Shown here is a 326-nucleotide RNA sequence from Leishmania major, a member of the family "Trypanosomatid mitochondrial large subunit ribosomal RNA". The family's consensus secondary structure was predicted with RNAalifold. The source organism's lineage runs through Eukaryota, Euglenozoa, Kinetoplastea, Trypanosomatidae and Leishmania major species complex.
RNA sequence: UAGGGCAAGUCCUACUCUCCUUUACAAAGAGAACGUUUAUAUGUAAUUGUAUGUUUGAUUGGGGCAAUACUAUAUCUAUUUAUAUAGAAAAAGAACUAUAUUUAUUGAAAUAAUAAAAGGUUCGAGCAGGUUAACAAGCAUUAAUACUAAAUGUGUUUCAUCGUCUACUUAUUGCUAAAUUAUAAUUGAUUGUUCAUCAAAAAAGCAAUUCGUUAGUUGGGUUAAAAUCGUUGUAAAGCAGAUUUGUUUAUAUAUUUAAUUUUUGUAUAUAGUUAAAAAUUAAUAUUAGUACGCAAGGAUUCAUUAUUUGUAAUUUAAAUAUAUUA
Numbered sequence: 001u002a003g004g005g006c007a008a009g010u011c012c013u014a015c016u017c018u019c020c021u022u023u024a025c026a027a028a029g030a031g032a033a034c035g036u037u038u039a040u041a042u043g044u045a046a047u048u049g050u051a052u053g054u055u056u057g058a059u060u061g062g063g064g065c066a067a068u069a070c071u072a073u074a075u076c077u078a079u080u081u082a083u084a085u086a087g088a089a090a091a092a093g094a095a096c097u098a099u100a101u102u103u104a105u106u107g108a109a110a111u112a113a114u115a116a117a118a119g120g121u122u123c124g125a126g127c128a129g130g131u132u133a134a135c136a137a138g139c140a141u142u143a144a145u146a147c148u149a150a151a152u153g154u155g156u157u158u159c160a161u162c163g164u165c166u167a168c169u170u171a172u173u174g175c176u177a178a179a180u181u182a183u184a185a186u187u188g189a190u191u192g193u194u195c196a197u198c199a200a201a202a203a204a205g206c207a208a209u210u211c212g213u214u215a216g217u218u219g220g221g222u223u224a225a226a227a228u229c230g231u232u233g234u235a236a237a238g239c240a241g242a243u244u245u246g247u248u249u250a251u252a253u254a255u256u257u258a259a260u261u262u263u264u265g266u267a268u269a270u271a272g273u274u275a276a277a278a279a280u281u282a283a284u285a286u287u288a289g290u291a292c293g294c295a296a297g298g299a300u301u302c303a304u305u306a307u308u309u310g311u312a313a314u315u316u317a318a319a320u321a322u323a324u325u326a
Stems, first nucleotide, its partner, number of pairs: 001014004016242003020238008029229002033044004046068005070087006093123005136158006161220003165216003168212001171209005187196003

Rfam links the family to the GO terms ribosome and structural constituent of ribosome. Clan: LSU clan. For this family Rfam cites "Structure of a mitochondrial ribosome with minimal RNA" (Sharma et al., Proc Natl Acad Sci U S A, 2009).